[Rfam]
RNA sequence: AGCCUAAACCUUGCAAAAGGCAUGGUUCCAGACCUCGACAGAUGUAAAGCUCUUCCAAGAGCGCUGUCGAGGCUAUCAAUCGAAAGGUUGAUAGGUGGUGAAAGCCAUC
Number, nucleotide and partner (000 for none) at each position: 001a027002g026003c025004c024005u000006a000007a000008a000009c020010c019011u018012u017013g000014c000015a000016a000017a012018a011019g010020g009021c000022a000023u000024g004025g003026u002027u001028c000029c000030a000031g000032a000033c072034c071035u070036c069037g068038a067039c066040a065041g064042a000043u000044g000045u000046a000047a000048a000049g062050c061051u060052c059053u058054u000055c000056c000057a000058a053059g052060a051061g050062c049063g000064c041065u040066g039067u038068c037069g036070a035071g034072g033073c000074u093075a092076u091077c090078a089079a088080u087081c086082g000083a000084a000085a000086g081087g080088u079089u078090g077091a076092u075093a074094g109095g108096u107097g106098g105099u104100g000101a000102a000103a000104g099105c098106c097107a096108u095109c094
RNA: LOOT RNA